[Rfam]
RNA: c-di-AMP riboswitch aptamer (ydaO/yuaA leader)
Organism: Paenibacillus sp. JCM 10914
RNA sequence: CGAAUAUUCCAGCCGAAUUUCGAUUUGAAAAUGGGGGAACCAUGUAAUUGGGGUGAAUUUCAUGAUUCUGUAAGGAUCGUGGAUAGGGCGACCUGUGACAAGGCCCGAAUCCGUCAGCUAACCUCGUAGGCUGUGCACAGGAACCAG
Number, nucleotide and partner (000 for none) at each position: 001c000002g000003a000004a000005u000006a000007u000008u000009c000010c000011a132012g131013c130014c129015g000016a000017a000018u030019u029020u028021c000022g000023a000024u000025u000026u000027g000028a020029a019030a018031a127032u126033g125034g124035g123036g122037g000038a000039a000040c000041c050042a049043u000044g000045u000046a000047a000048u000049u042050g041051g112052g111053g110054u000055g000056a000057a000058u000059u083060u082061c081062a080063u079064g078065a077066u076067u000068c000069u000070g000071u000072a000073a000074g000075g000076a066077u065078c064079g063080u062081g061082g060083a059084u000085a000086g106087g105088g104089c103090g000091a000092c000093c000094u000095g000096u000097g000098a000099c000100a000101a000102g000103g089104c088105c087106c086107g000108a000109a000110u053111c052112c051113g000114u000115c000116a000117g000118c000119u000120a000121a000122c036123c035124u034125c033126g032127u031128a000129g014130g013131c012132u011133g000134u000135g000136c000137a000138c000139a000140g000141g000142a000143a000144c000145c000146a000147g000